Overview
epsC RNA: a 111-nucleotide sequence from Xylanibacillus composti. The base pairs follow the family's consensus structure, which is taken from published work.
RNA sequence: AGGUAAUGUCUACUGCACCUCUAUCACUGUAGGCACUCGGUCAUGCUGUGGGUUCAAGGACCUUAGACGUGUAUCGUCGGAGGUGUGAUGUGAGGGAGGGUUGAAUGCCCU
Numbered sequence: 001a002g003g004u005a006a007u008g009u010c011u012a013c014u015g016c017a018c019c020u021c022u023a024u025c026a027c028u029g030u031a032g033g034c035a036c037u038c039g040g041u042c043a044u045g046c047u048g049u050g051g052g053u054u055c056a057a058g059g060a061c062c063u064u065a066g067a068c069g070u071g072u073a074u075c076g077u078c079g080g081a082g083g084u085g086u087g088a089u090g091u092g093a094g095g096g097a098g099g100g101u102u103g104a105a106u107g108c109c110c111u
Stems, first nucleotide, its partner, number of pairs: 001020004007035007036094004040089008050063005066078004097111005
The match comes from Rfam's covariance-model search (99 bits).
Rfam classes the family as a cis-regulatory element.